A member of the RNA family "FMN riboswitch aptamer (RFN element)" from Lachnospiraceae bacterium XPB1003, 130 nucleotides long.
The base pairs follow the family's consensus structure, which is taken from published work.
Gene Ontology term of the family: FMN binding.

[Rfam]
RNA sequence: AAGGAUCUUCGGGGCAGGGUGAAAUUCCCUACCGGCGGUGAUUUAAGUCCGCGAACCUGCGAUCAACGUUGCAGGCCGAUCCGGUGAGAUUCCGGAACCGACAGUAAAGUCUGGAUGGAAGAAGAUGUAA
Number, nucleotide and partner (000 for none) at each position: 001a000002a000003g128004g000005a126006u125007c124008u123009u122010c121011g000012g000013g000014g000015c000016a000017g029018g028019g027020u000021g000022a000023a000024a000025u000026u000027c019028c018029c017030u000031a110032c109033c100034g099035g052036c051037g050038g049039u000040g000041a000042u000043u000044u000045a000046a000047g098048u097049c038050c037051g036052c035053g000054a000055a000056c075057c074058u000059g000060c000061g000062a000063u000064c000065a000066a000067c000068g000069u000070u000071g000072c000073a000074g057075g056076c000077c000078g000079a000080u096081c095082c094083g093084g092085u000086g000087a000088g000089a000090u000091u000092c084093c083094g082095g081096a080097a048098c047099c034100g033101a000102c113103a112104g111105u000106a000107a000108a000109g032110u031111c104112u103113g102114g000115a000116u000117g000118g000119a000120a000121g010122a009123a008124g007125a006126u005127g000128u003129a000130a000